[Rfam]
RNA: Small nucleolar RNA Z105
Organism: Lupinus angustifolius
RNA sequence: UUGGCAUGGUGAUGAUUCUUUUGAUUUUUCAUAUGAUUAGUCAUGUGAUGAAAUACUAUCCUCCUACUCAUUCUGA
Numbered sequence: 001u002u003g004g005c006a007u008g009g010u011g012a013u014g015a016u017u018c019u020u021u022u023g024a025u026u027u028u029u030c031a032u033a034u035g036a037u038u039a040g041u042c043a044u045g046u047g048a049u050g051a052a053a054u055a056c057u058a059u060c061c062u063c064c065u066a067c068u069c070a071u072u073c074u075g076a
Base pairs, nucleotide, nucleotide: 006071007070008069009068028052029051034045